[Rfam]
SAM-I/IV (S-adenosyl methionine) riboswitch aptamer: a 97-nucleotide RNA from Riemerella anatipestifer.
The organism belongs to Riemerella anatipestifer, within Bacteria.
Its family is annotated with S-adenosylmethionine metabolic process and regulation of gene expression in the Gene Ontology.
RNA sequence: UGUAUUUAUCAAGAACCUUAAUAGAAAGGUAGCAACCUGCAACAACAAGCAAGGUGCUAAAAAGAUAAGCCUUAACAAAGGAAAAAAUGUUGUCUUU
Numbered sequence: 001u002g003u004a005u006u007u008a009u010c011a012a013g014a015a016c017c018u019u020a021a022u023a024g025a026a027a028g029g030u031a032g033c034a035a036c037c038u039g040c041a042a043c044a045a046c047a048a049g050c051a052a053g054g055u056g057c058u059a060a061a062a063a064g065a066u067a068a069g070c071c072u073u074a075a076c077a078a079a080g081g082a083a084a085a086a087a088u089g090u091u092g093u094c095u096u097u
Stems, first nucleotide, its partner, number of pairs: 006068005015030005031058003036054003039050002045091001070081004
Background
Pairs were carried over by alignment from the consensus structure, which is taken from published work. A search with the family's covariance model found it, with a score of 66 bits.